[Rfam]
RNA sequence: CGCCGUGACAGUGAUGACCACAAGCUGUUUGCACAUUUUGCCGACCCCGCGUGAGUGACCCACAGGAAUCUAAG
Numbered sequence: 001c002g003c004c005g006u007g008a009c010a011g012u013g014a015u016g017a018c019c020a021c022a023a024g025c026u027g028u029u030u031g032c033a034c035a036u037u038u039u040g041c042c043g044a045c046c047c048c049g050c051g052u053g054a055g056u057g058a059c060c061c062a063c064a065g066g067a068a069u070c071u072a073a074g
Stems, first nucleotide, its partner, number of pairs: 001057003011034003016029003041053001042051002
Shown here is a 74-nucleotide RNA from Trypanosoma cruzi, a member of the family "Small nucleolar RNA TBR6". About the family: TBR6 was one of seventeen snoRNAs identified in Trypanosoma brucei. Together with TBR2, TBR12 and TBR4 it is a part of snoRNA gene cluster that is tandemly repeated. These 4 snoRNA genes are transcribed as a polycistronic RNA transcript. Gene Ontology terms of the family: RNA processing and nucleolus.